Shown here is a 134-nucleotide RNA sequence from Sphenodon punctatus, a member of the family "Small Cajal body specific RNA 24". The organism belongs to Sphenodon, within Eukaryota. The literature on the family includes a 2002 paper in EMBO J by Darzacq et al., "Cajal body-specific small nuclear RNAs: a novel class of 2'-O-methylation and pseudouridylation guide RNAs". Rfam links the family to the GO terms Cajal body, nucleolus and RNA processing.

RNA sequence: UGGAUGUUUACGUUUUUUUGUUAGUGUCUCCUUUAUGUGGUGAUAACUACACAAAAGCAUCCGAUAGUAACACAGAAGCUAUCUGUUCAACCCAGGCUAGUUAAUAGGGUUGGAUCGUUCCACUUCUGACAGUC
Numbered sequence: 001u002g003g004a005u006g007u008u009u010a011c012g013u014u015u016u017u018u019u020g021u022u023a024g025u026g027u028c029u030c031c032u033u034u035a036u037g038u039g040g041u042g043a044u045a046a047c048u049a050c051a052c053a054a055a056a057g058c059a060u061c062c063g064a065u066a067g068u069a070a071c072a073c074a075g076a077a078g079c080u081a082u083c084u085g086u087u088c089a090a091c092c093c094a095g096g097c098u099a100g101u102u103a104a105u106a107g108g109g110u111u112g113g114a115u116c117g118u119u120c121c122a123c124u125u126c127u128g129a130c131a132g133u134c
Stems, first nucleotide, its partner, number of pairs: 002062008013054002023048003027043002030040002073128006092108002095105001